Shown here is a 54-nucleotide sequence from Oncorhynchus mykiss, a member of the family "UnaL2 LINE 3' element".
RNA sequence: UGCACGCAUGACUGUAAUUUGUUUUGGAUAAAAGUGUCUGCUAAAUGGCAUAUA
Numbered sequence: 001u002g003c004a005c006g007c008a009u010g011a012c013u014g015u016a017a018u019u020u021g022u023u024u025u026g027g028a029u030a031a032a033a034g035u036g037u038c039u040g041c042u043a044a045a046u047g048g049c050a051u052a053u054a
Stems, first nucleotide, its partner, number of pairs: 013043001014041003020036006
By type it is a cis-regulatory element.